[Rfam]
RNA sequence: AAUGAGGGACUAAGAGCUGCGGUAUUCGGUGUUUAUCCGUGCCUUCCACAGUGUCAUUGCCCUCAGAGA
Numbered sequence: 001a002a003u004g005a006g007g008g009a010c011u012a013a014g015a016g017c018u019g020c021g022g023u024a025u026u027c028g029g030u031g032u033u034u035a036u037c038c039g040u041g042c043c044u045u046c047c048a049c050a051g052u053g054u055c056a057u058u059g060c061c062c063u064c065a066g067a068g069a
Base pairs, nucleotide, nucleotide: 003065004064005063006062007061008060016052017051018050019049021047022046